A member of the RNA family "MIR812 microRNA precursor family" from Oryza nivara, 206 nucleotides long.
Lineage of the source: Eukaryota > Streptophyta > Liliopsida > Oryzinae > Oryza.
Pairs were carried over by alignment from the consensus structure, which was predicted with RNAalifold.
Rfam links the family to the GO terms RISC complex and miRNA-mediated post-transcriptional gene silencing.
It scores 129 bits against the family's covariance model.
[Rfam]
RNA sequence: AAUAAGUUUUACACUAUUCACGUUUAAUAUUUGAUCUUUUGUCUUAUUUGAAAAUUUUUUAUGAUUAGUAUUUUUAUUGCUAUUAGAUAAUAAAACAUAAAUAGUACUUUAUGUGUGACUAAAUAUUUUUAAAUUUUUCAUAAAUUUUUUAAAUAAGACGGACGGUUAAACGUUAAACACGAAUAGCUAUCUAGGUAGUACUACAC
Number, nucleotide and partner (000 for none) at each position: 001a000002a000003u000004a000005a000006g000007u000008u000009u000010u000011a000012c000013a000014c000015u000016a000017u000018u000019c000020a000021c000022g000023u177024u176025u175026a174027a173028u172029a000030u170031u169032u168033g167034a166035u165036c164037u000038u162039u161040u160041g159042u158043c157044u156045u155046a154047u153048u000049u000050g000051a000052a000053a000054a000055u000056u000057u000058u000059u000060u000061a000062u000063g000064a000065u000066u000067a000068g000069u000070a000071u000072u000073u000074u000075u000076a000077u000078u000079g000080c000081u000082a000083u000084u000085a000086g000087a000088u000089a000090a000091u000092a000093a000094a000095a000096c000097a000098u000099a000100a000101a000102u000103a000104g000105u000106a000107c000108u000109u000110u000111a000112u000113g000114u000115g000116u000117g000118a000119c000120u000121a000122a000123a000124u000125a000126u000127u000128u000129u000130u000131a000132a000133a000134u000135u000136u000137u000138u000139c000140a000141u000142a000143a000144a000145u000146u000147u000148u000149u000150u000151a000152a000153a047154u046155a045156a044157g043158a042159c041160g040161g039162a038163c000164g036165g035166u034167u033168a032169a031170a030171c000172g028173u027174u026175a025176a024177a023178c000179a000180c000181g000182a000183a000184u000185a000186g000187c000188u000189a000190u000191c000192u000193a000194g000195g000196u000197a000198g000199u000200a000201c000202u000203a000204c000205a000206c000